[Rfam]
RNA sequence: ACAUGUCAGUUGCUUAAUCUUAACUUUAAGAGCGGGGGACCCAAUUUUUACAGCGGAAUUUCCGCUUGGGGUGAAUCCAUUAAGGAAGGGCUUGCUGUUUCCCUUAGUCCUAACCCGAAAGCUAACCUCGUAAGCAUUUAAGGAAACAAAU
Numbered sequence: 001a002c003a004u005g006u007c008a009g010u011u012g013c014u015u016a017a018u019c020u021u022a023a024c025u026u027u028a029a030g031a032g033c034g035g036g037g038g039a040c041c042c043a044a045u046u047u048u049u050a051c052a053g054c055g056g057a058a059u060u061u062c063c064g065c066u067u068g069g070g071g072u073g074a075a076u077c078c079a080u081u082a083a084g085g086a087a088g089g090g091c092u093u094g095c096u097g098u099u100u101c102c103c104u105u106a107g108u109c110c111u112a113a114c115c116c117g118a119a120a121g122c123u124a125a126c127c128u129c130g131u132a133a134g135c136a137u138u139u140a141a142g143g144a145a146a147c148a149a150a151u
Base pairs, nucleotide, nucleotide: 011136012135013134014133018031019030020029032131033130034129035128036127037126042068043067069116070115071114077085078084088110089109090108091107
Dot-bracket structure: ..........((((...(((........)))((((((....((.......................))(((.....((.....))..((((...............))))...))).........)))))).))))...............
Rfam assigns this 151-nucleotide sequence from Bacillus mesophilum to the family "c-di-AMP riboswitch aptamer (ydaO/yuaA leader)". Pairs were carried over by alignment from the consensus structure. The match comes from Rfam's covariance-model search (80 bits). Its family is annotated with regulation of gene expression and cyclic-di-AMP binding in the Gene Ontology.